[Rfam]
RNA sequence: UUUUCCGGAAGAAGGCGUGGGGGGUGACUCACAGGCCCACGUGGCCUCCAUUCCCCCGGGAAGGUCUGAGAAAAGGUCAUCUGGGUUUGAGAAGGACCCCAUUCGUGAGAAUGGGAGGCUGUAACAGAAAAUGUCCCCUGCGGGGUUUGAAGACAGCCUCGACCAGCAGUGUCUGAGUGCGAUCGCCCUGUGUAACACAAUUCAGACUAGUCUUCGGAGAA
Numbered sequence: 001u002u003u004u005c006c007g008g009a010a011g012a013a014g015g016c017g018u019g020g021g022g023g024g025u026g027a028c029u030c031a032c033a034g035g036c037c038c039a040c041g042u043g044g045c046c047u048c049c050a051u052u053c054c055c056c057c058g059g060g061a062a063g064g065u066c067u068g069a070g071a072a073a074a075g076g077u078c079a080u081c082u083g084g085g086u087u088u089g090a091g092a093a094g095g096a097c098c099c100c101a102u103u104c105g106u107g108a109g110a111a112u113g114g115g116a117g118g119c120u121g122u123a124a125c126a127g128a129a130a131a132u133g134u135c136c137c138c139u140g141c142g143g144g145g146u147u148u149g150a151a152g153a154c155a156g157c158c159u160c161g162a163c164c165a166g167c168a169g170u171g172u173c174u175g176a177g178u179g180c181g182a183u184c185g186c187c188c189u190g191u192g193u194a195a196c197a198c199a200a201u202u203c204a205g206a207c208u209a210g211u212c213u214u215c216g217g218a219g220a221a
Stems, first nucleotide, its partner, number of pairs: 001221004007215003013189003020057005033047005066205005075164004084098005099114006115160007135145003
Source information: Rfam assigns this 221-nucleotide RNA sequence from Ancylostoma caninum to the family "Nuclear RNase P". By type it is a ribozyme. The family has 116 seed sequences and 3,848 matches in Rfam 15.1.